[Rfam]
RNA sequence: CGUUCUUUAUAUAAAGUACCUCAUAUAAUCUUGGGAAUAUGGCCCAAAAGUUUCUACCUGCUGACCGUAAAUCGGCGGACUAUGGGGAAAGAUUUUGGAUCU
Number, nucleotide and partner (000 for none) at each position: 001c000002g000003u000004u000005c000006u000007u000008u000009a000010u000011a000012u000013a000014a000015a000016g000017u000018a000019c087020c086021u085022c084023a083024u082025a081026u000027a000028a000029u049030c000031u047032u046033g045034g044035g043036a000037a000038u000039a000040u000041g000042g000043c035044c034045c033046a032047a031048a000049a029050g000051u000052u000053u000054c000055u000056a000057c000058c078059u077060g076061c075062u074063g073064a072065c000066c000067g000068u000069a000070a000071a000072u064073c063074g062075g061076c060077g059078g058079a000080c000081u025082a024083u023084g022085g021086g020087g019088a000089a000090a000091g000092a000093u000094u000095u000096u000097g000098g000099a000100u000101c000102u000

This 102-nucleotide sequence from Halalkalibacterium halodurans belongs to the Rfam family "Purine riboswitch aptamer". The family's consensus secondary structure is taken from published work. Gene Ontology term of the family: purine nucleobase biosynthetic process. It is one of the family's seed sequences.